[Rfam]
RNA: Bacterial RNase P class A
RNA sequence: GCACUGCAACGGUCUGUCGCUGGUGUCAUUUUGGCACGAGAGGAAAGUCCGGGCAGCAUAGGGUACCCCACUUCUGAAAGUGGAAGCUAUUGGUGACAGUAGGUGUCGGUAGAAGAAAAGAACCGCCUUUCUUCGGAAGGGUAAGGGUGAGAAGGUGGUGUAAGAGACCACCAGCCAGCGGGUGAUCGCUGGGCUGUGCCAACUGGGGGCUGCAAGUUCAUGUAAACCGUCCCGAGAGAGGGUUACCCGCCCGAGUUGACGAAGGUCUGAGCAGCAAUGCAAUAGGGCUGGGACUCAUGCGGCGGAGGGUAGAACGCUUGAGCCAUGGGGUGACUCAUGGACUAGAUAAAUGACAGACGCCACGCAAGUGGUACAGAACCCGGCUUACAGAGGCAAUGCUUUC
Numbered sequence: 001g002c003a004c005u006g007c008a009a010c011g012g013u014c015u016g017u018c019g020c021u022g023g024u025g026u027c028a029u030u031u032u033g034g035c036a037c038g039a040g041a042g043g044a045a046a047g048u049c050c051g052g053g054c055a056g057c058a059u060a061g062g063g064u065a066c067c068c069c070a071c072u073u074c075u076g077a078a079a080g081u082g083g084a085a086g087c088u089a090u091u092g093g094u095g096a097c098a099g100u101a102g103g104u105g106u107c108g109g110u111a112g113a114a115g116a117a118a119a120g121a122a123c124c125g126c127c128u129u130u131c132u133u134c135g136g137a138a139g140g141g142u143a144a145g146g147g148u149g150a151g152a153a154g155g156u157g158g159u160g161u162a163a164g165a166g167a168c169c170a171c172c173a174g175c176c177a178g179c180g181g182g183u184g185a186u187c188g189c190u191g192g193g194c195u196g197u198g199c200c201a202a203c204u205g206g207g208g209g210c211u212g213c214a215a216g217u218u219c220a221u222g223u224a225a226a227c228c229g230u231c232c233c234g235a236g237a238g239a240g241g242g243u244u245a246c247c248c249g250c251c252c253g254a255g256u257u258g259a260c261g262a263a264g265g266u267c268u269g270a271g272c273a274g275c276a277a278u279g280c281a282a283u284a285g286g287g288c289u290g291g292g293a294c295u296c297a298u299g300c301g302g303c304g305g306a307g308g309g310u311a312g313a314a315c316g317c318u319u320g321a322g323c324c325a326u327g328g329g330g331u332g333a334c335u336c337a338u339g340g341a342c343u344a345g346a347u348a349a350a351u352g353a354c355a356g357a358c359g360c361c362a363c364g365c366a367a368g369u370g371g372u373a374c375a376g377a378a379c380c381c382g383g384c385u386u387a388c389a390g391a392g393g394c395a396a397u398g399c400u401u402u403c
Stems, first nucleotide, its partner, number of pairs: 001399003005395003010390001011388001012358007020040002023037006045386003049383005054212004066208005071086005087102001089100004103203002109199003123146002125142007154172006174194001175192007216315004227305005323340007